[Rfam]
RNA sequence: CACGAUAAUGGCAAACCUGUCGAAAGGCAGGGACGCAAAGCUAUAGGGCCUUCUAAACAGAUGGCAGCCUGGCCACCGAAA
Numbered sequence: 001c002a003c004g005a006u007a008a009u010g011g012c013a014a015a016c017c018u019g020u021c022g023a024a025a026g027g028c029a030g031g032g033a034c035g036c037a038a039a040g041c042u043a044u045a046g047g048g049c050c051u052u053c054u055a056a057a058c059a060g061a062u063g064g065c066a067g068c069c070u071g072g073c074c075a076c077c078g079a080a081a
Base pairs, nucleotide, nucleotide: 003078004077011036012035016031017030018029019028020027021026034067040073041072042071045070046069047068048065049064050063
Description: Shown here is an 81-nucleotide RNA from Paenibacillus sp. MY03, a member of the family "c-di-GMP-I-GGC riboswitch aptamer". Taxonomically the source falls in Paenibacillus (Bacteria, Bacilli, Caryophanales, Paenibacillaceae). The family's consensus secondary structure is taken from published work.